[Rfam]
RNA sequence: UACUCUCAACCGUCAGAGCCGAUAGAAGGGAUUUUAUCGGGCGUAUAUUGAGAGUCCAAACUCAAUUCCAGUGAUGCGGGUGACUGCAUCCAAACAUCAAACCGAGUCAGUUGAGCUAGUAAAGCAAUUGAAAGUUUGGCUGACUC
Numbered sequence: 001u002a003c004u005c006u007c008a009a010c011c012g013u014c015a016g017a018g019c020c021g022a023u024a025g026a027a028g029g030g031a032u033u034u035u036a037u038c039g040g041g042c043g044u045a046u047a048u049u050g051a052g053a054g055u056c057c058a059a060a061c062u063c064a065a066u067u068c069c070a071g072u073g074a075u076g077c078g079g080g081u082g083a084c085u086g087c088a089u090c091c092a093a094a095c096a097u098c099a100a101a102c103c104g105a106g107u108c109a110g111u112u113g114a115g116c117u118a119g120u121a122a123a124g125c126a127a128u129u130g131a132a133a134g135u136u137u138g139g140c141u142g143a144c145u146c
Stems, first nucleotide, its partner, number of pairs: 003054006012046002019040009073090007104146013122129002
Annotation
The record is a 146-nucleotide RNA from Pseudanabaena cinerea, which matches "RT-14 RNA" in Rfam. Taxonomically the source falls in Pseudanabaena cinerea (Bacteria, Cyanophyceae, Pseudanabaenaceae, Pseudanabaena). A search with the family's covariance model found it, with a score of 50 bits.